A member of the RNA family "mir-7 microRNA precursor family" from Stegastes partitus, 89 nucleotides long. Rfam 15.1 lists 2,589 matches to the family in 797 species. The literature on the family includes a 2001 paper in Science by Lagos-Quintana et al., "Identification of novel genes coding for small expressed RNAs". Lineage of the source: Eukaryota > Osteoglossocephalai > Neoteleostei > Ctenosquamata > Stegastes. This family represents the microRNA (miRNA) precursor mir-7.

RNA sequence: UGUUGGUGGUGCUGAGUGGAAGACUAGUGAUUUUGUUGUGACGCUGAUCAAAGAACAACAAGUCCCAGUCUACCUCUCAGCACCAAGCA
Numbered sequence: 001u002g003u004u005g006g007u008g009g010u011g012c013u014g015a016g017u018g019g020a021a022g023a024c025u026a027g028u029g030a031u032u033u034u035g036u037u038g039u040g041a042c043g044c045u046g047a048u049c050a051a052a053g054a055a056c057a058a059c060a061a062g063u064c065c066c067a068g069u070c071u072a073c074c075u076c077u078c079a080g081c082a083c084c085a086a087g088c089a
Stems, first nucleotide, its partner, number of pairs: 002088003006084001009083002012080005018074002021071005027066001029064005035059005